FMN riboswitch aptamer (RFN element): a 151-nucleotide sequence from Bordetella sp. 02P26C-1.
Gene Ontology term of the family: FMN binding.
The source organism's lineage runs through Bacteria, Betaproteobacteria, Burkholderiales, Alcaligenaceae and Bordetella.
[Rfam]
RNA sequence: GUACGUCUUCAGGGCGGGGUGUAACUCCCCACCGGCGGUAAGCCCCACAGGGGCGAGCCCGCGAGCGCCCGGUGCCUUAUGGCUAUCGGGGUCAGCAGAUCUGGUGCGAAACCAGAGCCGACGGUCAUAGUCCGGAUGAAAGAAGAUGUGC
Numbered sequence: 001g002u003a004c005g006u007c008u009u010c011a012g013g014g015c016g017g018g019g020u021g022u023a024a025c026u027c028c029c030c031a032c033c034g035g036c037g038g039u040a041a042g043c044c045c046c047a048c049a050g051g052g053g054c055g056a057g058c059c060c061g062c063g064a065g066c067g068c069c070c071g072g073u074g075c076c077u078u079a080u081g082g083c084u085a086u087c088g089g090g091g092u093c094a095g096c097a098g099a100u101c102u103g104g105u106g107c108g109a110a111a112c113c114a115g116a117g118c119c120g121a122c123g124g125u126c127a128u129a130g131u132c133c134g135g136a137u138g139a140a141a142g143a144a145g146a147u148g149u150g151c
Stems, first nucleotide, its partner, number of pairs: 003149008017029003031131002033120002035062004057118002065096002100116005122134003